[Rfam]
RNA sequence: UUCUGCUUUUGGCUUCUUUACAGUGCUGCCUUGUGGCUUGAGAAUCAAGCAGCAUUGUACAGGGCUAUGAAAGCAAAG
Numbered sequence: 001u002u003c004u005g006c007u008u009u010u011g012g013c014u015u016c017u018u019u020a021c022a023g024u025g026c027u028g029c030c031u032u033g034u035g036g037c038u039u040g041a042g043a044a045u046c047a048a049g050c051a052g053c054a055u056u057g058u059a060c061a062g063g064g065c066u067a068u069g070a071a072a073g074c075a076a077a078g
Stems, first nucleotide, its partner, number of pairs: 014064004019059010030049004
The record is a 78-nucleotide sequence from Polypterus senegalus, which matches "mir-103/107 microRNA precursor family" in Rfam. Taxonomically the source falls in Polypterus (Eukaryota, Metazoa, Chordata, Cladistia). Pairs were carried over by alignment from the consensus structure, which was predicted with RNAalifold. This family consists of the mammalian microRNA (miRNA) precursors mir-103 and mir107. Animal miRNAs are transcribed as ~70nt precursors and subsequently processed by the Dicer enzyme to give a ~22nt product. In this case the mature sequence comes from the 3' arm of the precursor. Rfam links the family to the GO terms miRNA-mediated post-transcriptional gene silencing and RISC complex. A search with the family's covariance model found it, with a score of 95 bits. For this family Rfam cites "miRNPs: a novel class of ribonucleoproteins containing numerous microRNAs" (Mourelatos et al., Genes Dev, 2002).